Rfam assigns this 76-nucleotide RNA from Gouania willdenowi to the family "mir-205 microRNA precursor family".
The family has 44 seed sequences and 1,154 matches in Rfam 15.1.
Gene Ontology terms of the family: miRNA-mediated post-transcriptional gene silencing and RISC complex.
Taxonomically the source falls in Gouania (Eukaryota, Opisthokonta, Actinopterygii, Ovalentaria).
The match comes from Rfam's covariance-model search (78 bits).

[Rfam]
RNA sequence: GUGUGAUAUCCUUCAUUCCACCGGAGUCUGUGUGUGUUUCCUAAUCAGAUUUCAGUGGAAUGAAGAGUACGAGACA
Numbered sequence: 001g002u003g004u005g006a007u008a009u010c011c012u013u014c015a016u017u018c019c020a021c022c023g024g025a026g027u028c029u030g031u032g033u034g035u036g037u038u039u040c041c042u043a044a045u046c047a048g049a050u051u052u053c054a055g056u057g058g059a060a061u062g063a064a065g066a067g068u069a070c071g072a073g074a075c076a
Stems, first nucleotide, its partner, number of pairs: 011065006019057003023053004028048003